[Rfam]
RNA sequence: UCGGCUUCCGGUUCACGUCCCUCGCUCCGCAGGUGGCGACCCGGCAGCACC
Numbered sequence: 001u002c003g004g005c006u007u008c009c010g011g012u013u014c015a016c017g018u019c020c021c022u023c024g025c026u027c028c029g030c031a032g033g034u035g036g037c038g039a040c041c042c043g044g045c046a047g048c049a050c051c
Base pairs, nucleotide, nucleotide: 003051004050006046008044009043010042011041016038017037018036019035021033022032024030